This 73-nucleotide RNA sequence from Leptidea sinapis belongs to the Rfam family "mir-124 microRNA precursor family". A reference for the family is Lai et al. (2003), "Computational identification of Drosophila microRNA genes", Genome Biol. Pairs were carried over by alignment from the consensus structure, which was predicted with PFOLD.
[Rfam]
RNA sequence: AACUCCUCGCGUUCACUGCAGGCCUUUAUGUGUUUAAUGUUAAUCAUAAGGCACGCGGUGAAUGCCAAGAGCG
Numbered sequence: 001a002a003c004u005c006c007u008c009g010c011g012u013u014c015a016c017u018g019c020a021g022g023c024c025u026u027u028a029u030g031u032g033u034u035u036a037a038u039g040u041u042a043a044u045c046a047u048a049a050g051g052c053a054c055g056c057g058g059u060g061a062a063u064g065c066c067a068a069g070a071g072c073g
Base pairs, nucleotide, nucleotide: 003071004070005069009065010064011063012062013061014060015059016058018056019055023051024050025049027048028047029046030045